[Rfam]
Rfam assigns this 113-nucleotide RNA sequence to the family "mir-172 microRNA precursor family". From the family's description: mir-172 has been experimentally verified in Arabidopsis thaliana. This family is thought to target mRNAs coding for APETALA2-like transcription factors. The mature sequence is excised from the 3' arm of the hairpin. Rfam links the family to the GO terms RISC complex and miRNA-mediated post-transcriptional gene silencing.
RNA sequence: UUGUUUGCUAUUGCAACAUCUUCAAGAUUCAGAAAUCAGAUUCUCUUAUGGGUUUUCUUUUGAGCCUUUAUUUUUUGGUUUGAGAAUCUUGAUGAUGCUGCAGCGGCAAUUAA
Numbered sequence: 001u002u003g004u005u006u007g008c009u010a011u012u013g014c015a016a017c018a019u020c021u022u023c024a025a026g027a028u029u030c031a032g033a034a035a036u037c038a039g040a041u042u043c044u045c046u047u048a049u050g051g052g053u054u055u056u057c058u059u060u061u062g063a064g065c066c067u068u069u070a071u072u073u074u075u076u077g078g079u080u081u082g083a084g085a086a087u088c089u090u091g092a093u094g095a096u097g098c099u100g101c102a103g104c105g106g107c108a109a110u111u112a113a
Stems, first nucleotide, its partner, number of pairs: 011103005017097004022092009033081001
Pairs were carried over by alignment from the consensus structure, which was predicted with PFOLD. For this family Rfam cites "Computational Identification of Plant MicroRNAs and Their Targets, Including a Stress-Induced miRNA" (Jones-Rhoades and Bartel, Mol Cell, 2004).